[Rfam]
Description
The record is a 273-nucleotide part of an RNA from Sneathiella litorea, which matches "Bacterial large subunit ribosomal RNA" in Rfam. The match comes from Rfam's covariance-model search (2780 bits).
RNA sequence: GAGAUGAGUGUGAGAAACACUCACGUCGAAAGUCCAAGGGUUCCUGCGUAAAGCUAAUCUGCGCAGGGUGAGCCGGCCCCUAAGGCGAGGGCGAAAGCCGUAGUCGAUGGGAAGGAGGUUAAUAUUCCUCCGCCUGCUGGAAGUGACGAAUGGGGUAAAUUGUGGGUCCUUAUUGGAUUGGACCUGCCGUGAACCUGUUCCAGGAAAUAGCUCCAGCUUAUAGACCGUACCCCAAACCGACACAGGUGGACUGGUAGAGUAUACCGAGACGUU
Numbered sequence: 001g002a003g004a005u006g007a008g009u010g011u012g013a014g015a016a017a018c019a020c021u022c023a024c025g026u027c028g029a030a031a032g033u034c035c036a037a038g039g040g041u042u043c044c045u046g047c048g049u050a051a052a053g054c055u056a057a058u059c060u061g062c063g064c065a066g067g068g069u070g071a072g073c074c075g076g077c078c079c080c081u082a083a084g085g086c087g088a089g090g091g092c093g094a095a096a097g098c099c100g101u102a103g104u105c106g107a108u109g110g111g112a113a114g115g116a117g118g119u120u121a122a123u124a125u126u127c128c129u130c131c132g133c134c135u136g137c138u139g140g141a142a143g144u145g146a147c148g149a150a151u152g153g154g155g156u157a158a159a160u161u162g163u164g165g166g167u168c169c170u171u172a173u174u175g176g177a178u179u180g181g182a183c184c185u186g187c188c189g190u191g192a193a194c195c196u197g198u199u200c201c202a203g204g205a206a207a208u209a210g211c212u213c214c215a216g217c218u219u220a221u222a223g224a225c226c227g228u229a230c231c232c233c234a235a236a237c238c239g240a241c242a243c244a245g246g247u248g249g250a251c252u253g254g255u256a257g258a259g260u261a262u263a264c265c266g267a268g269a270c271g272u273u
Stems, first nucleotide, its partner, number of pairs: 005023006024271004032251004038231002043067006052060002074227003079110002084105003088101001090099003114131005134223001136217001139214003144209001148200004154195003159190002162187001164185006237246002253265004